[Rfam]
RNA: Small nucleolar RNA Z122
RNA sequence: UGUGGGAUAUGAUGAACUUAUUUCAGAUGUUUCUGAUGGUAGAUCUCAUGUACCUGUGAUUAAACCUUGCACGUCAGUCUGAUCCCAUG
Numbered sequence: 001u002g003u004g005g006g007a008u009a010u011g012a013u014g015a016a017c018u019u020a021u022u023u024c025a026g027a028u029g030u031u032u033c034u035g036a037u038g039g040u041a042g043a044u045c046u047c048a049u050g051u052a053c054c055u056g057u058g059a060u061u062a063a064a065c066c067u068u069g070c071a072c073g074u075c076a077g078u079c080u081g082a083u084c085c086c087a088u089g
Stems, first nucleotide, its partner, number of pairs: 001089007